[Rfam]
RNA sequence: GGAUGUGGCUCUGGAGAAGCUCAUUUCAGGAGUACCGAAGGUGCAAGGCGGGGGAUAAACCCCGCUGAAUCUCUCAGGUAAAAGGACAGAGUAGGGGAG
Numbered sequence: 001g002g003a004u005g006u007g008g009c010u011c012u013g014g015a016g017a018a019g020c021u022c023a024u025u026u027c028a029g030g031a032g033u034a035c036c037g038a039a040g041g042u043g044c045a046a047g048g049c050g051g052g053g054g055a056u057a058a059a060c061c062c063c064g065c066u067g068a069a070u071c072u073c074u075c076a077g078g079u080a081a082a083a084g085g086a087c088a089g090a091g092u093a094g095g096g097g098a099g
Stems, first nucleotide, its partner, number of pairs: 006094001008092006020032003034079003037075002041073001043071001047066007
Source information
This 99-nucleotide sequence from Faecalibacterium gallinarum belongs to the Rfam family "Glycine riboswitch aptamer". A search with the family's covariance model found it, with a score of 59 bits. Gene Ontology term of the family: glycine biosynthetic process. This family represents the bacterial glycine riboswitch. Glycine riboswitches usually consist of two metabolite-binding aptamers domains with similar structures in tandem. The organism belongs to Faecalibacterium, within Bacteria.